[Rfam]
RNA sequence: CAAAAUAAGGGCAUGGGGAAUGCCUAGUCUCAGAGGCGAAGAAGGACGUGAUAAGCUGCGAAAAGCUGCGGGGACCUGGCACACAACAGAGUGAUCGCGCAGAGAUCCGGAAUGGGGCAACCCGCUAUGCUGAAGCAUGAGCCACACCGAUAGUGGGCAAACCCGCUGAAAACUGAAACAUCUAAGUUAGCGAGAGGAGAAGAAAACAAAGUGAAUUCCGUAAAGUAUGGCGAGCGGAACGCGAUUAGCCCAAACCCAUUUAUGUUACGGGCCAUAGGUGGGGUUGGUAGCCGCGAUAUUUCAUUUGCACAAGGAACCGGAAGUUUCUGGAAAGGACGCAUAGAGGAGUGAACAGGCCCCGUAUGGGGCAAAUCAAGGUGUUAUGAUAGCGGUAUCCUGAGAUAGGGCGGAGGCACGAUGGAAACCCUUGUCUAGAAAUUCGGCCGGGACCAUCCAGCUUAAGGCUAAAUACUCCUGAGAGACCGAUAGUGAACCAGUACCGUGAGAAAGGUGAAGAAGAACCGUGAAGUAACGAGGAAAUAGAUCCUGAACCCAUGCGCUUCUACAAG
Number, nucleotide and partner (000 for none) at each position: 001c000002a000003a000004a000005a000006u000007a562008a561009g560010g000011g558012c557013a556014u555015g554016g553017g000018g000019a000020a000021u000022g547023c511024c510025u000026a000027g484028u000029c479030u478031c477032a476033g475034a473035g472036g158037c157038g000039a000040a000041g000042a000043a000044g108045g107046a106047c060048g059049u058050g000051a000052u000053a000054a000055g000056c000057u000058g049059c048060g047061a000062a000063a000064a000065g000066c102067u101068g100069c099070g098071g000072g096073g095074a000075c000076c089077u088078g087079g000080c000081a000082c000083a000084c000085a000086a000087c078088a077089g076090a000091g000092u000093g000094a000095u073096c072097g000098c070099g069100c068101a067102g066103a000104g000105a000106u046107c045108c044109g000110g000111a000112a000113u000114g123115g122116g121117g000118c000119a000120a000121c116122c115123c114124g142125c141126u140127a138128u137129g136130c000131u000132g000133a000134a000135g000136c129137a128138u127139g000140a126141g125142c124143c155144a154145c153146a000147c000148c000149g000150a000151u000152a000153g145154u144155g143156g000157g037158c036159a000160a000161a000162c196163c194164c192165g191166c190167u189168g000169a000170a000171a000172a000173c000174u000175g182176a181177a000178a000179c000180a000181u176182c175183u000184a000185a000186g000187u000188u000189a167190g166191c165192g164193a000194g163195a000196g162197g000198a000199g000200a000201a000202g000203a000204a000205a000206a212207c211208a000209a000210a000211g207212u206213g000214a000215a000216u469217u244218c000219c243220g242221u241222a000223a000224a000225g000226u000227a000228u234229g000230g000231c000232g000233a000234g228235c000236g000237g000238a000239a000240c000241g221242c220243g219244a217245u000246u000247a466248g465249c464250c463251c000252a000253a000254a000255c282256c281257c280258a279259u278260u277261u276262a275263u274264g273265u000266u000267a000268c000269g000270g000271g000272c000273c264274a263275u262276a261277g260278g259279u258280g257281g256282g255283g000284u000285u000286g000287g000288u000289a398290g397291c392292c391293g390294c389295g000296a000297u000298a000299u000300u000301u000302c000303a000304u000305u383306u000307g381308c380309a379310c378311a000312a000313g000314g374315a373316a000317c366318c365319g364320g000321a000322a000323g337324u000325u336326u335327c334328u000329g000330g000331a000332a000333a000334g327335g326336a325337c323338g000339c343340a000341u000342a000343g339344a000345g360346g359347a000348g358349u000350g000351a000352a000353c000354a000355g000356g000357c000358c348359c346360c345361g000362u000363a000364u319365g318366g317367g000368g000369c000370a000371a000372a000373u315374c314375a000376a000377g000378g310379u309380g308381u307382u000383a305384u000385g000386a000387u000388a000389g294390c293391g292392g291393u000394a000395u000396c000397c290398u289399g000400a000401g000402a000403u000404a000405g433406g432407g431408c430409g429410g428411a000412g426413g425414c000415a000416c000417g000418a000419u000420g000421g000422a000423a000424a000425c413426c412427c000428u410429u409430g408431u407432c406433u405434a000435g000436a000437a000438a000439u000440u000441c000442g000443g458444c457445c000446g455447g454448g000449a000450c000451c000452a000453u000454c447455c446456a000457g444458c443459u000460u000461a000462a000463g250464g249465c248466u247467a000468a000469a216470u000471a000472c035473u034474c000475c033476u032477g031478a030479g029480a000481g000482a000483c000484c027485g000486a000487u000488a000489g000490u000491g000492a000493a000494c000495c000496a000497g000498u000499a000500c000501c000502g000503u000504g000505a000506g000507a000508a000509a000510g024511g023512u000513g000514a000515a000516g000517a000518a000519g000520a000521a000522c534523c000524g000525u531526g000527a000528a000529g000530u000531a525532a000533c000534g522535a000536g000537g000538a000539a000540a000541u000542a000543g000544a000545u000546c000547c022548u000549g000550a000551a000552c000553c016554c015555a014556u013557g012558c011559g000560c009561u008562u007563c000564u000565a000566c000567a000568a000569g000

Bacterial large subunit ribosomal RNA: a 569-nucleotide part of an RNA. The match comes from Rfam's covariance-model search (1388 bits).